[Rfam]
RNA sequence: GCCGCUGAGGAGCGCUGCAUCAUCCCGCAUGGCAACAUGGCACGGCGGUGGCAGGCUCGGCGGACAUCUUCACACGUGGCCAGCAACUGAUGCAUGGGAUGUGUGGCAGAUCCUACAACGGCGCUCACCUGAA
Numbered sequence: 001g002c003c004g005c006u007g008a009g010g011a012g013c014g015c016u017g018c019a020u021c022a023u024c025c026c027g028c029a030u031g032g033c034a035a036c037a038u039g040g041c042a043c044g045g046c047g048g049u050g051g052c053a054g055g056c057u058c059g060g061c062g063g064a065c066a067u068c069u070u071c072a073c074a075c076g077u078g079g080c081c082a083g084c085a086a087c088u089g090a091u092g093c094a095u096g097g098g099a100u101g102u103g104u105g106g107c108a109g110a111u112c113c114u115a116c117a118a119c120g121g122c123g124c125u126c127a128c129c130u131g132a133a
Stems, first nucleotide, its partner, number of pairs: 002063007021050004026045001
RNA: SAH (S-adenosyl-L-homocysteine) riboswitch aptamer